[Rfam]
RNA sequence: GUUUUUAACCAAGUUACUCGAGGUAAAUCUUGAGAUUCGAUCAAGUUUAGACUUGCAUCGAAUGAAUCAAUUUUUGAUCCAACCUUUCUGGGGAUAUCCGGAAAGGAAAA
Numbered sequence: 001g002u003u004u005u006u007a008a009c010c011a012a013g014u015u016a017c018u019c020g021a022g023g024u025a026a027a028u029c030u031u032g033a034g035a036u037u038c039g040a041u042c043a044a045g046u047u048u049a050g051a052c053u054u055g056c057a058u059c060g061a062a063u064g065a066a067u068c069a070a071u072u073u074u075u076g077a078u079c080c081a082a083c084c085u086u087u088c089u090g091g092g093g094a095u096a097u098c099c100g101g102a103a104a105g106g107a108a109a110a
Stems, first nucleotide, its partner, number of pairs: 007036001009032001013028002015025003038060004042055005085107003089103001092099002

Rfam assigns this 110-nucleotide sequence from Diploscapter pachys to the family "SL2 RNA". For this family Rfam cites "Trans-spliced leader RNA, 5S-rRNA genes and novel variant orphan spliced-leader of the lymphatic filarial nematode Wuchereria bancrofti, and a sensitive polymerase chain reaction based detection assay" (Dassanayake et al., Gene, 2001). Lineage of the source: Eukaryota > Bilateria > Nematoda > Chromadorea > Diploscapter. This family represents SL2 RNA. SL2 RNA is involved in trans splicing in lower eukaryotes. Trans-splicing is a form of RNA processing. The acquisition of a spliced leader from a SL RNA is a intra-molecular reaction which precisely joins exons derived from separately transcribed RNAs. Pairs were carried over by alignment from the consensus structure, which is taken from published work. A search with the family's covariance model found it, with a score of 51 bits. The family is grouped with related families in Rfam's "SL clan".